The family of this 102-nucleotide RNA from Paenibacillus sp. 32O-W is "Purine riboswitch aptamer". Rfam links the family to the GO term purine nucleobase biosynthetic process. The match comes from Rfam's covariance-model search (74 bits). Rfam's curators write: Riboswitches are metabolite binding domains within certain messenger RNAs that serve as precision sensors for their corresponding targets. Allosteric rearrangement of mRNA structure is mediated by ligand binding, and this results in modulation of gene expression. A class of riboswitches that selectively recognises guanine and becomes saturated at concentrations as low as 5 nM. In Bacillus subtilis, this mRNA motif is located on at least five separate transcriptional units that together encode 17 genes that are mostly involved in purine transport and purine nucleotide biosynthesis. It has also been shown that some members of this family are specific for adenine instead. Hence this family are termed purine riboswitches.
[Rfam]
RNA sequence: GGUCGGCGGCUCAUACAGCCUCGUAUAUACUCGGGAAUAUGGCCCGAAAGUUUCUACCCGAAAACCUUAAAUUUUCGGACUACGAGCGGUGUGAAUGGACGA
Numbered sequence: 001g002g003u004c005g006g007c008g009g010c011u012c013a014u015a016c017a018g019c020c021u022c023g024u025a026u027a028u029a030c031u032c033g034g035g036a037a038u039a040u041g042g043c044c045c046g047a048a049a050g051u052u053u054c055u056a057c058c059c060g061a062a063a064a065c066c067u068u069a070a071a072u073u074u075u076c077g078g079a080c081u082a083c084g085a086g087c088g089g090u091g092u093g094a095a096u097g098g099a100c101g102a
Stems, first nucleotide, its partner, number of pairs: 020086006031047005058078007